Annotation:
This 452-nucleotide RNA from Lamprotornis superbus belongs to the Rfam family "Vertebrate telomerase RNA". Rfam 15.1 lists 523 matches to the family in 477 species. The base pairs follow the family's consensus structure, which is taken from published work. A reference for the family is Chen et al. (2000), "Secondary structure of vertebrate telomerase RNA", Cell.
RNA sequence: CGUGCCGGGGUGGGCAGGCCCUGUGGCCAACUAACCCUAAUGGCGGCCGCGCCCCUCACGCUCGCCCGCUGUUUUACUCGCUGACUUUCAGCGGGCAAAGGGAGCGGCCCUGGGGAAGGGGGGCGGAGAGGGAAAAGGGUUCCGGCCUCAAAAAAAGCCAGCGAUGGGGAUCCACACCCCGGCCCACCCUGGGGUCCCUGUCCCUUCUCCGCAACCGGGGAUGCUCCCGCCUUCGCCCCUCGUGGAGGCCGCGGUCGGCAGGCUCAGCGCCACUACCGCCGCGAAGAGUUCGUCUCUGUCAGCCUUGGCGGAGGCCGGGAGCAGAGGGCCGGCCCGCCCACCCUGGGCAGCCGGGGGACCCCAGCAGAGUAAAAAGGGGCGGCGCUGCCGGGCGCUGAGCAGCCGCAGCUCCCUGAGAAGUGGAGUGCGCGGCCGGCGCUGCCCCGACACCC
Numbered sequence: 001c002g003u004g005c006c007g008g009g010g011u012g013g014g015c016a017g018g019c020c021c022u023g024u025g026g027c028c029a030a031c032u033a034a035c036c037c038u039a040a041u042g043g044c045g046g047c048c049g050c051g052c053c054c055c056u057c058a059c060g061c062u063c064g065c066c067c068g069c070u071g072u073u074u075u076a077c078u079c080g081c082u083g084a085c086u087u088u089c090a091g092c093g094g095g096c097a098a099a100g101g102g103a104g105c106g107g108c109c110c111u112g113g114g115g116a117a118g119g120g121g122g123g124c125g126g127a128g129a130g131g132g133a134a135a136a137g138g139g140u141u142c143c144g145g146c147c148u149c150a151a152a153a154a155a156a157g158c159c160a161g162c163g164a165u166g167g168g169g170a171u172c173c174a175c176a177c178c179c180c181g182g183c184c185c186a187c188c189c190u191g192g193g194g195u196c197c198c199u200g201u202c203c204c205u206u207c208u209c210c211g212c213a214a215c216c217g218g219g220g221a222u223g224c225u226c227c228c229g230c231c232u233u234c235g236c237c238c239c240u241c242g243u244g245g246a247g248g249c250c251g252c253g254g255u256c257g258g259c260a261g262g263c264u265c266a267g268c269g270c271c272a273c274u275a276c277c278g279c280c281g282c283g284a285a286g287a288g289u290u291c292g293u294c295u296c297u298g299u300c301a302g303c304c305u306u307g308g309c310g311g312a313g314g315c316c317g318g319g320a321g322c323a324g325a326g327g328g329c330c331g332g333c334c335c336g337c338c339c340a341c342c343c344u345g346g347g348c349a350g351c352c353g354g355g356g357g358a359c360c361c362c363a364g365c366a367g368a369g370u371a372a373a374a375a376g377g378g379g380c381g382g383c384g385c386u387g388c389c390g391g392g393c394g395c396u397g398a399g400c401a402g403c404c405g406c407a408g409c410u411c412c413c414u415g416a417g418a419a420g421u422g423g424a425g426u427g428c429g430c431g432g433c434c435g436g437c438g439c440u441g442c443c444c445c446g447a448c449a450c451c452c
Base pairs, nucleotide, nucleotide: 004183005182006181007180008179009178010177011176012175014173016171019169020168021167022166051105052104054102055101064096065095066094067093068092069091070090071089080162081161082160083159085157086155087154088153189364190363191362192361193360194359195358215332216331223322224321225320226319227318228317229316232312233311234310235309236308250283251282252281253280254279256278257277258276261271262270263269285297286296287295288294377444378443379442380441382439383438384437385436386435403432404431405430406429410425412423413422
It scores 145 bits against the family's covariance model. It is annotated as a non-coding RNA gene. The organism belongs to Lamprotornis, within Eukaryota. Gene Ontology terms of the family: telomere maintenance via telomerase, telomerase activity and telomerase catalytic core complex.